RNA sequence: UCGGUUCCGGUUCACGCCUCGCGAGGCGACCCGGCGCC
Numbered sequence: 001u002c003g004g005u006u007c008c009g010g011u012u013c014a015c016g017c018c019u020c021g022c023g024a025g026g027c028g029a030c031c032c033g034g035c036g037c038c
Base pairs, nucleotide, nucleotide: 003038004037005036007034008033009032010031015028016027017026018025019024
RNA: L31-Actinobacteria ribosomal protein leader